Description
A member of the RNA family "L31-Actinobacteria ribosomal protein leader" from Streptomyces sp. MBT28, 47 nucleotides long. The source organism's lineage runs through Bacteria, Bacillati, Actinomycetes, Kitasatosporales and Streptomyces. The family's RNA type in Rfam is cis-regulatory leader. Clan: Ribosomal Protein L31 Leader clan. The family's consensus secondary structure is taken from published work. A reference for the family is Eckert and Weinberg (2020), "Discovery of 20 novel ribosomal leader candidates in bacteria and archaea", BMC Microbiol.
RNA sequence: UCGGUCCCGGUUCACGCUCCCGCAUCCCGCGGAGGCGACCCGGCACC
Numbered sequence: 001u002c003g004g005u006c007c008c009g010g011u012u013c014a015c016g017c018u019c020c021c022g023c024a025u026c027c028c029g030c031g032g033a034g035g036c037g038a039c040c041c042g043g044c045a046c047c
Base pairs, nucleotide, nucleotide: 003047004046005045007043008042009041010040015037016036017035018034020032021031022030023029